[Rfam]
RNA: mir-16 microRNA precursor family
RNA sequence: GUUGCGCUGUAGCAGCACGUAAAUACUGGAGUUGAGUUUAGUCUGUUAUCCAGUGUUACUGUUCUGCUCCAGUCAGAC
Numbered sequence: 001g002u003u004g005c006g007c008u009g010u011a012g013c014a015g016c017a018c019g020u021a022a023a024u025a026c027u028g029g030a031g032u033u034g035a036g037u038u039u040a041g042u043c044u045g046u047u048a049u050c051c052a053g054u055g056u057u058a059c060u061g062u063u064c065u066g067c068u069c070c071a072g073u074c075a076g077a078c
Stems, first nucleotide, its partner, number of pairs: 001078003006073002010071001011068005017062002020058001022057008